[Rfam]
Nucleotides: 565
Base pairs, nucleotide, nucleotide: 007562008561009560011558014555015554020549022547025057026056027055028054029053036051037050038049039048040047059164060163061162062161063160064159073110074109075108076107077106078105080101081100082099083098084097085096086095087094088093111136112135113134114133115132116131117130118129119128121126139151140150141149142148143147183517185515189513190507193340194339195338196337198334199333200332201331202330203329204298205297206296207295208294209293222234223233224232225231240281241280242279243278244277245276249273250272253269255267259288260287261286262285300360301359302358303357309322310321311320312319313318344421350416351415352414353413354412403489404488405487406486427438428437442501443500444499453498456495459492460491463485465482468478469477470476534545535544536543537542
Number, partner (000 for none) and nucleotide at each position: 001000c002000c003000u004000g005000c006000u007562a008561u009560u010000u011558u012000c013000a014555a015554a016000c017000a018000u019000g020549g021000u022547u023000a024000a025057c026056u027055c028054a029053g030000u031000g032000c033000a034000g035000a036051u037050a038049g039048a040047u041000u042000u043000u044000u045000c046000a047040g048039u049038c050037u051036a052000g053029c054028u055027g056026a057025g058000a059164u060163g061162c062161a063160g064159g065000g066000u067000u068000a069000u070000a071000u072000g073110a074109g075108a076107u077106a078105g079000a080101g081100u082099a083098g084097u085096u086095c087094g088093g089000g090000a091000u092000a093088c094087u095086g096085g097084g098083c099082u100081a101080u102000c103000a104000a105078c106077u107076a108075u109074c110073u111136u112135u113134c114133u115132g116131g117130c118129a119128g120000a121126a122000u123000c124000g125000c126121u127000c128119c129118u130117g131116c132115c133114a134113g135112a136111g137000g138000a139151g140150g141149a142148a143147g144000a145000a146000a147143c148142u149141u150140c151139c152000a153000a154000u155000a156000c157000a158000c159064c160063u161062u162061g163060u164059a165000g166000u167000g168000u169000a170000u171000c172000a173000u174000c175000a176000u177000a178000a179000a180000g181000a182000g183517a184000c185515c186000a187000a188000a189513a190507g191000c192000a193340g194339a195338a196337u197000c198334c199333u200332u201331g202330u203329g204298g205297u206296c207295a208294g209293u210000g211000u212000a213000u214000a215000a216000u217000a218000g219000a220000c221000g222234c223233u224232u225231g226000c227000g228000g229000u230000g231225c232224a233223a234222g235000a236000a237000u238000a239000a240281u241280c242279c243278g244277u245276u246000g247000a248000u249273g250272u251000g252000a253269g254000g255267g256000g257000c258000g259288u260287g261286a262285g263000a264000g265000a266000c267255c268000a269253c270000g271000g272250a273249c274000u275000a276245g277244g278243c279242g280241g281240a282000a283000a284000u285262c286261u287260c288259a289000u290000u291000a292000a293209g294208c295207u296206g297205a298204u299000u300360u301359g302358c303357c304000u305000u306000g307000a308000a309322c310321c311320u312319g313318a314000g315000a316000a317000a318313u319312c320311a321310g322309g323000g324000u325000a326000u327000a328000a329203c330202a331201c332200a333199a334198g335000a336000g337196a338195u339194u340193c341000g342000u343000u344421a345000g346000a347000g348000u349000a350416g351415c352414g353413g354412u355000a356000u357303g358302g359301c360300a361000u362000u363000u364000a365000u366000u367000a368000u369000a370000a371000a372000a373000u374000a375000a376000a377000a378000u379000c380000u381000u382000u383000c384000g385000a386000a387000u388000g389000a390000u391000u392000a393000u394000c395000g396000a397000a398000a399000a400000a401000c402000u403489u404488c405487u406486g407000a408000a409000a410000g411000a412354a413353c414352c415351g416350u417000g418000a419000a420000a421344u422000u423000u424000g425000u426000g427438g428437g429000u430000g431000a432000c433000a434000u435000u436000c437428c438427c439000g440000u441000u442501u443500g444499u445000g446000c447000u448000u449000g450000a451000c452000c453498g454000c455000g456495g457000u458000a459492a460491g461000a462000a463485g464000c465482u466000c467000a468478g469477g470476g471000u472000c473000g474000c475000u476470c477469c478468c479000g480000a481000a482465g483000g484000c485463u486406c487405a488404g489403a490000c491460u492459u493000a494000u495456c496000g497000u498453c499444a500443c501442a502000g503000u504000g505000g506000c507190u508000g509000a510000a511000u512000a513189u514000g515185g516000u517183u518000g519000c520000a521000a522000g523000u524000a525000u526000g527000a528000u529000g530000g531000a532000u533000a534545a535544g536543g537542g538000g539000a540000a541000a542537c543536c544535c545534u546000a547022a548000u549020c550000a551000u552000g553000u554015u555014u556000g557000a558011a559000u560009a561008g562007u563000u564000g565000a
Rfam assigns this 565-nucleotide RNA to the family "ROOL RNA". Rfam describes the family as follows. Firmicutes, Fusobacteria (1 example), Tenericutes (1 example). Pairs were carried over by alignment from the consensus structure, which is taken from published work.